[Rfam]
RNA sequence: AGCCUCCCUCUGUGGGGUGAUCGAUCACGGGGCCCCACGAUCGAUCUCCCUGUAGAGGGAGGCC
Numbered sequence: 001a002g003c004c005u006c007c008c009u010c011u012g013u014g015g016g017g018u019g020a021u022c023g024a025u026c027a028c029g030g031g032g033c034c035c036c037a038c039g040a041u042c043g044a045u046c047u048c049c050c051u052g053u054a055g056a057g058g059g060a061g062g063c064c
Stems, first nucleotide, its partner, number of pairs: 002063016019046008029036002